[Rfam]
Shown here is a 553-nucleotide RNA from Arachis hypogaea, a member of the family "Group I catalytic intron". The match comes from Rfam's covariance-model search (108 bits). Gene Ontology term of the family: Group I intron splicing.
RNA sequence: CUAUGGACUUAAUUGGAUUGAGCCUUGGUAUGGAAACUUACCAAGUGAUAACUUUCAAAUUCAGAGAAACCCUGGAAUUAACAAUGGGUAAUCCUGAGCCAAAUCCCGUUUUCGGAAAGGAAAUAAACAUUAAGAAAGCGAGAAUAAAAAAGGGAUAGGUGCAGAGACUCAAUGGAAGCUGUUCUAACAAAUGGAGUUGACGACCUUUCCUUUCGCGUGAGGAAAGGAAUCCUUCUGUACAAAUGAAAUUCUCGAAAGGCUAUACAGAAAUAUGUAUAUAGACUUGUUUACGUAUUUGUACUGAAAUACUAUUUCAAUUGAUUAAUGAAUACACUACUCGAAAUCCCUAUUUUUGAAUCCUUAUAUCACAAAUGGAAAGAUGUCUAUCACAAAUGAAAGAUGUGAAUCAAAUCAAUUCCAAGUUAAAGAAAUAAUUGAAUAUUCAUAUUAACUGAUCAAUUUAUUCACUCCAUCCUAGUCUGAUAGAUCCUCUGAAGAACUUAUUAAUCGGACGAGAAUAAAGAUAGAGUCCCAUUCUACAUGUCAAUCUCGA
Numbered sequence: 001c002u003a004u005g006g007a008c009u010u011a012a013u014u015g016g017a018u019u020g021a022g023c024c025u026u027g028g029u030a031u032g033g034a035a036a037c038u039u040a041c042c043a044a045g046u047g048a049u050a051a052c053u054u055u056c057a058a059a060u061u062c063a064g065a066g067a068a069a070c071c072c073u074g075g076a077a078u079u080a081a082c083a084a085u086g087g088g089u090a091a092u093c094c095u096g097a098g099c100c101a102a103a104u105c106c107c108g109u110u111u112u113c114g115g116a117a118a119g120g121a122a123a124u125a126a127a128c129a130u131u132a133a134g135a136a137a138g139c140g141a142g143a144a145u146a147a148a149a150a151a152g153g154g155a156u157a158g159g160u161g162c163a164g165a166g167a168c169u170c171a172a173u174g175g176a177a178g179c180u181g182u183u184c185u186a187a188c189a190a191a192u193g194g195a196g197u198u199g200a201c202g203a204c205c206u207u208u209c210c211u212u213u214c215g216c217g218u219g220a221g222g223a224a225a226g227g228a229a230u231c232c233u234u235c236u237g238u239a240c241a242a243a244u245g246a247a248a249u250u251c252u253c254g255a256a257a258g259g260c261u262a263u264a265c266a267g268a269a270a271u272a273u274g275u276a277u278a279u280a281g282a283c284u285u286g287u288u289u290a291c292g293u294a295u296u297u298g299u300a301c302u303g304a305a306a307u308a309c310u311a312u313u314u315c316a317a318u319u320g321a322u323u324a325a326u327g328a329a330u331a332c333a334c335u336a337c338u339c340g341a342a343a344u345c346c347c348u349a350u351u352u353u354u355g356a357a358u359c360c361u362u363a364u365a366u367c368a369c370a371a372a373u374g375g376a377a378a379g380a381u382g383u384c385u386a387u388c389a390c391a392a393a394u395g396a397a398a399g400a401u402g403u404g405a406a407u408c409a410a411a412u413c414a415a416u417u418c419c420a421a422g423u424u425a426a427a428g429a430a431a432u433a434a435u436u437g438a439a440u441a442u443u444c445a446u447a448u449u450a451a452c453u454g455a456u457c458a459a460u461u462u463a464u465u466c467a468c469u470c471c472a473u474c475c476u477a478g479u480c481u482g483a484u485a486g487a488u489c490c491u492c493u494g495a496a497g498a499a500c501u502u503a504u505u506a507a508u509c510g511g512a513c514g515a516g517a518a519u520a521a522a523g524a525u526a527g528a529g530u531c532c533c534a535u536u537c538u539a540c541a542u543g544u545c546a547a548u549c550u551c552g553a
Stems, first nucleotide, its partner, number of pairs: 005024001008022006030038001050180001052178003056174002061097004066092001070088003098160002104154003111148002114145001164532001166531005182518004539550001541548002